[Rfam]
Nucleotides: 281
Stems, first nucleotide, its partner, number of pairs: 001281004036260001039257001043234003047230004061219004065130006087116006094109001096106001138198001140197003145192002154183003158179004163174002
Number, partner (000 for none) and nucleotide at each position: 001281a002280g003279u004278c005000a006000g007000u008000g009000a010000u011000g012000a013000c014000u015000a016000g017000u018000a019000a020000a021000a022000g023000g024000u025000c026000u027000g028000a029000u030000u031000g032000c033000a034000u035000u036260g037000c038000g039257c040000u041000u042000c043234c044233c045232u046000a047230a048229c049228a050227c051000a052000c053000c054000a055000a056000a057000u058000c059000a060000u061219c062218u063217c064216c065130c066129g067128g068127c069126a070125g071000u072000c073000c074000c075000u076000u077000u078000u079000u080000u081000u082000c083000u084000u085000u086000u087116u088115c089114c090113a091112u092111c093000c094109u095000g096106c097000u098000c099000u100000a101000g102000c103000u104000g105000u106096g107000c108000a109094g110000u111092g112091a113090u114089g115088g116087g117000c118000a119000a120000c121000a122000g123000g124000u125070c126069u127068g128067c129066u130065g131000c132000a133000a134000u135000u136000u137000a138198g139000g140197g141196a142195u143000a144000a145192u146191c147000c148000a149000u150000a151000a152000u153000a154183c155182c156181a157000a158179a159178g160177c161176u162000c163174u164173g165000u166000a167000a168000g169000a170000a171000u172000u173164c174163a175000u176161a177160g178159c179158u180000g181156u182155g183154g184000u185000a186000g187000c188000a189000u190000u191146g192145g193000g194000c195142a196141u197140c198138c199000a200000a201000c202000a203000u204000a205000u206000c207000c208000a209000u210000u211000a212000u213000a214000a215000a216064g217063g218062a219061g220000a221000c222000u223000u224000a225000a226000g227050g228049u229048g230047u231000a232045a233044g234043g235000u236000u237000u238000g239000a240000a241000g242000c243000a244000a245000u246000a247000c248000g249000c250000u251000u252000u253000g254000c255000a256000u257039g258000a259000u260036c261000u262000c263000u264000a265000g266000u267000u268000u269000u270000c271000a272000a273000u274000c275000u276000g277000a278004g279003a280002c281001u
Small Cajal body specific RNA 6: a 281-nucleotide RNA from Xenopus laevis. The literature on the family includes a 2001 paper in EMBO J by Huttenhofer et al., "RNomics: an experimental approach that identifies 201 candidates for novel, small, non-messenger RNAs in mouse". U88 is small Cajal body specific RNA (scaRNA). scaRNAs are a novel class of small nuclear RNAs which localise to the Cajal bodies. U88 is found associated with both fibrillarin and Gar1p and co-localises with coilin in Cajal bodies. It scores 106 bits against the family's covariance model. Taxonomically the source falls in Xenopus (Eukaryota, Chordata, Teleostomi, Euteleostomi). The family's RNA type in Rfam is small Cajal body RNA.